[Rfam]
RNA sequence: GGCCUCCUGGUGCCUACCAUGGGCUGUGUUCUUACACUGACUAUAUAGAAAGAGGAGGCAGAGUAAACCUACCCUAUAUACACUUUAGCCUAGGCCCUGUACUUAAUCUGUAUUAUUAAGGGGAAACAUAG
Numbered sequence: 001g002g003c004c005u006c007c008u009g010g011u012g013c014c015u016a017c018c019a020u021g022g023g024c025u026g027u028g029u030u031c032u033u034a035c036a037c038u039g040a041c042u043a044u045a046u047a048g049a050a051a052g053a054g055g056a057g058g059c060a061g062a063g064u065a066a067a068c069c070u071a072c073c074c075u076a077u078a079u080a081c082a083c084u085u086u087a088g089c090c091u092a093g094g095c096c097c098u099g100u101a102c103u104u105a106a107u108c109u110g111u112a113u114u115a116u117u118a119a120g121g122g123g124a125a126a127c128a129u130a131g
Base pairs, nucleotide, nucleotide: 002059003058004057005056006055007054008053020043021042022041026037027036028035029034072123073122074121075120077119086110087109088108091105092104093103094102
RNA: Small nucleolar RNA SNORA51
Organism: Dipodomys ordii